[Rfam]
Bacillaceae-1 RNA: a 66-nucleotide RNA sequence from Siminovitchia fortis. The base pairs follow the family's consensus structure, which is taken from published work.

Nucleotides: 066
Stems, first nucleotide, its partner, number of pairs: 012048006025039005053065004
Number, partner (000 for none) and nucleotide at each position: 001000c002000g003000g004000c005000g006000a007000g008000g009000a010000a011000c012048g013047c014046a015045g016044g017043c018000u019000c020000a021000a022000g023000c024000a025039g026038c027037g028036a029035c030000g031000u032000c033000c034000u035029g036028u037027c038026g039025c040000u041000u042000c043017g044016c045015c046014u047013g048012c049000a050000c051000u052000a053065g054064c055063a056062c057000a058000u059000c060000c061000u062056g063055u064054g065053c066000g

By type it is a small RNA.
Lineage of the source: Bacteria > Bacillota > Caryophanales > Bacillaceae > Siminovitchia.
The match comes from Rfam's covariance-model search (50 bits).